[Rfam]
RNA: Glutamine riboswitch aptamer (glnA leader)
RNA sequence: AGCUUUUAUUUUGAUGGAAACGGAAGUAAAACUUUUAUUUUGAAGGAAAGCUCC
Numbered sequence: 001a002g003c004u005u006u007u008a009u010u011u012u013g014a015u016g017g018a019a020a021c022g023g024a025a026g027u028a029a030a031a032c033u034u035u036u037a038u039u040u041u042g043a044a045g046g047a048a049a050g051c052u053c054c
Stems, first nucleotide, its partner, number of pairs: 003050005009020004023051001029041003